[Rfam]
RNA sequence: GAGUUUACGGUCGUGGCAAGCCUAAAGGGAUUAACCCUGAAGGCGGAGGGAAACCGAUAUGCCCGCAGCCAGCUUUGCUGGUAAGGGGCAAGGUCUUAACGGGCCUGUAGUCACGGCCGUAAAACCCGAAACCGAGCGAUCUAGGCGGGGGCAGGGCGAAGCCGGGGGAAACCCCGGUGGAGGCCCGAAAGGGUUCUGACGUGCAAAUCGUUCCCAUGACCUCUGCCUAGGGGUAAAAGGCCAAUCUAGCUCGGUGAUAGCUGGUU
Numbered sequence: 001g002a003g004u005u006u007a008c009g010g011u012c013g014u015g016g017c018a019a020g021c022c023u024a025a026a027g028g029g030a031u032u033a034a035c036c037c038u039g040a041a042g043g044c045g046g047a048g049g050g051a052a053a054c055c056g057a058u059a060u061g062c063c064c065g066c067a068g069c070c071a072g073c074u075u076u077g078c079u080g081g082u083a084a085g086g087g088g089c090a091a092g093g094u095c096u097u098a099a100c101g102g103g104c105c106u107g108u109a110g111u112c113a114c115g116g117c118c119g120u121a122a123a124a125c126c127c128g129a130a131a132c133c134g135a136g137c138g139a140u141c142u143a144g145g146c147g148g149g150g151g152c153a154g155g156g157c158g159a160a161g162c163c164g165g166g167g168g169a170a171a172c173c174c175c176g177g178u179g180g181a182g183g184c185c186c187g188a189a190a191g192g193g194u195u196c197u198g199a200c201g202u203g204c205a206a207a208u209c210g211u212u213c214c215c216a217u218g219a220c221c222u223c224u225g226c227c228u229a230g231g232g233g234u235a236a237a238a239g240g241c242c243a244a245u246c247u248a249g250c251u252c253g254g255u256g257a258u259a260g261c262u263g264g265u266u
Stems, first nucleotide, its partner, number of pairs: 005122013020044004026038004048055002061089004068082006092105004125264002128261001132254006141230011152218001154186004161178007191215003196210001198209002232242003
The record is a 266-nucleotide part of an RNA from Caldisphaera lagunensis, which matches "Archaeal large subunit ribosomal RNA" in Rfam. The family has 91 seed sequences and 2,955 matches in Rfam 15.1. Lineage of the source: Archaea > Thermoprotei > Acidilobales > Acidilobaceae > Caldisphaera lagunensis. It scores 2826 bits against the family's covariance model. Gene Ontology terms of the family: ribosome and structural constituent of ribosome.